About this RNA: Shown here is a 93-nucleotide sequence from Candidatus Fukatsuia symbiotica, a member of the family "sRNA-Xcc1". It scores 68 bits against the family's covariance model. The literature on the family includes a 2011 paper in RNA Biol by Chen et al., "sRNA-Xcc1, an integron-encoded transposon- and plasmid-transferred trans-acting sRNA, is under the positive control of the key virulence regulators HrpG and HrpX of Xanthomonas campestris pathovar campestris".

[Rfam]
Nucleotides: 093
Stems, first nucleotide, its partner, number of pairs: 001085009013052004019046001028042005054069005
Number, partner (000 for none) and nucleotide at each position: 001085g002084g003083u004082c005081g006080g007079g008078u009077a010000g011000c012000g013052a014051g015050u016049a017000g018000c019046u020000a021000u022000a023000u024000a025000a026000c027000a028042c029041c030040u031039c032038u033000g034000c035000c036000g037000a038032g039031g040030a041029g042028g043000g044000a045000a046019a047000u048000c049016u050015a051014c052013u053000g054069g055068c056067c057066g058065u059000c060000u061000c062000u063000u064000u065058g066057c067056g068055g069054u070000g071000u072000u073000c074000a075000a076000g077009u078008g079007c080006c081005c082004g083003a084002c085001c086000g087000c088000c089000c090000c091000g092000a093000u